[Rfam]
Nucleotides: 125
Stems, first nucleotide, its partner, number of pairs: 009048002012041004017036006064118001067115002070112001074111003081105001087100002090097001
Number, partner (000 for none) and nucleotide at each position: 001000a002000a003000g004000c005000a006000a007000c008000a009048c010047u011000c012041u013040g014039u015038g016000u017036c018035a019034g020033a021032u022031u023000a024000u025000u026000a027000a028000g029000a030000c031022a032021g033020u034019c035018u036017g037000a038015c039014a040013c041012a042000g043000u044000u045000u046000c047010a048009g049000c050000u051000u052000g053000c054000u055000a056000a057000a058000g059000c060000a061000a062000g063000g064118a065000a066000a067115u068114u069000c070112a071000g072000c073000c074111u075110a076109u077000u078000g079000c080000a081105g082000c083000a084000c085000u086000c087100u088099c089000c090097u091000c092000c093000c094000u095000g096000u097090g098000a099088g100087a101000c102000a103000g104000a105081c106000a107000u108000u109076a110075u111074g112070u113000a114068g115067a116000c117000c118064u119000a120000a121000g122000c123000a124000g125000u

The family of this 125-nucleotide RNA sequence from Octodon degus is "Small nucleolar RNA SNORA28". ACA28 is a member of the H/ACA class of snoRNA that guide the sites of modification of uridines to pseudouridines. Its Rfam clan is "SNORA28 clan". Rfam classes the family as an H/ACA-box small nucleolar RNA. Gene Ontology terms of the family: nucleolus and RNA processing.